Small nucleolar RNA Z266: a 107-nucleotide RNA sequence from Arabis alpina.
The organism belongs to Arabis, within Eukaryota.
[Rfam]
RNA sequence: AAAAGGCGAGAAUGAUGAAUCAAAUUAGAUGUGUGAAUUAGGGGUAAUUUCCUAAUUAUGAGCUCAAAACUUUUUGAGGCAUUUUCAAUUUUCUGACUUCGCCGAUU
Numbered sequence: 001a002a003a004a005g006g007c008g009a010g011a012a013u014g015a016u017g018a019a020u021c022a023a024a025u026u027a028g029a030u031g032u033g034u035g036a037a038u039u040a041g042g043g044g045u046a047a048u049u050u051c052c053u054a055a056u057u058a059u060g061a062g063c064u065c066a067a068a069a070c071u072u073u074u075u076g077a078g079g080c081a082u083u084u085u086c087a088a089u090u091u092u093c094u095g096a097c098u099u100c101g102c103c104g105a106u107u
Base pairs, nucleotide, nucleotide: 001107002106005103006102007101008100009098010097

Rfam 15.1 lists 719 matches to the family in 213 species. The match comes from Rfam's covariance-model search (56 bits).